[Rfam]
RNA: rydB RNA
Organism: Hafnia alvei
Nucleotides: 068
Stems, first nucleotide, its partner, number of pairs: 002060004014035003037053004042048001
Number, partner (000 for none) and nucleotide at each position: 001000g002060u003059u004058c005057a006000a007000a008000u009000a010000a011000a012000g013000a014035g015034c016033u017000a018000a019000c020000g021000c022000c023000g024000c025000a026000a027000a028000g029000u030000g031000c032000g033016a034015g035014u036000g037053c038052c039051g040050g041000a042048g043000a044000u045000a046000a047000g048042c049000g050040c051039c052038g053037g054000a055000a056000u057005u058004g059003a060002a061000c062000g063000u064000a065000a066000u067000u068000u